Rfam assigns this 395-nucleotide RNA from Sphingopyxis witflariensis to the family "Bacterial RNase P class A".

RNA sequence: CCAGAGGGUCGGGCGAUCGCCGCUGGUGGGGUAUCCCGCCGGGGGAGGAAAGUCCGGGCUCCACGGAAACCACGGUGCCGGAUAACGUCCGGCGGUUCGCGCGUUCGUGCGGAUUAGGGAAAGUGCCACAGAGAGUAGAUCGCCAAAGGCUUCGGCCCGGCGAAAGGUGAAAGGGUGCGGUAAGAGCGCACCGCGCGGCUGGUAACAGGCGCGGCACGGCAAACCCCACCGGGAGCAAGGUCGAAUAGGGACGGUACGGAGCAAUCCAGGGUCGGUUCCGGCCCAGCCGUCCGGGUUGACUGCUUGAGCGUUCGGGUAACCGUUCGCCUAGAGGAAUGAUCGCCCAUCCCCUGCAAAGGGGUGGACAGAACCCGGCUUACAGACCCUCUGGCAAU
Numbered sequence: 001c002c003a004g005a006g007g008g009u010c011g012g013g014c015g016a017u018c019g020c021c022g023c024u025g026g027u028g029g030g031g032u033a034u035c036c037c038g039c040c041g042g043g044g045g046a047g048g049a050a051a052g053u054c055c056g057g058g059c060u061c062c063a064c065g066g067a068a069a070c071c072a073c074g075g076u077g078c079c080g081g082a083u084a085a086c087g088u089c090c091g092g093c094g095g096u097u098c099g100c101g102c103g104u105u106c107g108u109g110c111g112g113a114u115u116a117g118g119g120a121a122a123g124u125g126c127c128a129c130a131g132a133g134a135g136u137a138g139a140u141c142g143c144c145a146a147a148g149g150c151u152u153c154g155g156c157c158c159g160g161c162g163a164a165a166g167g168u169g170a171a172a173g174g175g176u177g178c179g180g181u182a183a184g185a186g187c188g189c190a191c192c193g194c195g196c197g198g199c200u201g202g203u204a205a206c207a208g209g210c211g212c213g214g215c216a217c218g219g220c221a222a223a224c225c226c227c228a229c230c231g232g233g234a235g236c237a238a239g240g241u242c243g244a245a246u247a248g249g250g251a252c253g254g255u256a257c258g259g260a261g262c263a264a265u266c267c268a269g270g271g272u273c274g275g276u277u278c279c280g281g282c283c284c285a286g287c288c289g290u291c292c293g294g295g296u297u298g299a300c301u302g303c304u305u306g307a308g309c310g311u312u313c314g315g316g317u318a319a320c321c322g323u324u325c326g327c328c329u330a331g332a333g334g335a336a337u338g339a340u341c342g343c344c345c346a347u348c349c350c351c352u353g354c355a356a357a358g359g360g361g362u363g364g365a366c367a368g369a370a371c372c373c374g375g376c377u378u379a380c381a382g383a384c385c386c387u388c389u390g391g392c393a394a395u
Stems, first nucleotide, its partner, number of pairs: 001391010011380001012344007020045002023042006050378003054375005059235004069277001071275001073231005078092005093117001094115009118226002123224002125220003141166001143162001148157003174192006193215001194213004199208003239301004249292006269284005308327003313322003
Rfam classes the family as a ribozyme. From the family's description: Ribonuclease P (RNase P) is a ubiquitous endoribonuclease, found in archaea, bacteria and eukarya as well as chloroplasts and mitochondria.